[Rfam]
RNA: Small nucleolar RNA U54
Organism: Zizania palustris
RNA sequence: UGCUCAAUGAUUAAGCCAUGCUAUGGCAUGGUAACAUACGCUAUUCUGAAUCAUAUUAAGAUGCUAUAAACCUUAUGAGAGCA
Numbered sequence: 001u002g003c004u005c006a007a008u009g010a011u012u013a014a015g016c017c018a019u020g021c022u023a024u025g026g027c028a029u030g031g032u033a034a035c036a037u038a039c040g041c042u043a044u045u046c047u048g049a050a051u052c053a054u055a056u057u058a059a060g061a062u063g064c065u066a067u068a069a070a071c072c073u074u075a076u077g078a079g080a081g082c083a
Base pairs, nucleotide, nucleotide: 001083002082003081004080005079